RNA: mir-26 microRNA precursor family
RNA sequence: UUGGUGGCUGGUUUCAAGUAAUCCAGGAUAGGCUGUAAUGUGUCCUCUCAGCCUAUUCUCGACUGCUUGGGACCGGAGCCAA
Numbered sequence: 001u002u003g004g005u006g007g008c009u010g011g012u013u014u015c016a017a018g019u020a021a022u023c024c025a026g027g028a029u030a031g032g033c034u035g036u037a038a039u040g041u042g043u044c045c046u047c048u049c050a051g052c053c054u055a056u057u058c059u060c061g062a063c064u065g066c067u068u069g070g071g072a073c074c075g076g077a078g079c080c081a082a
Stems, first nucleotide, its partner, number of pairs: 002081004008076006015069006022062002025059010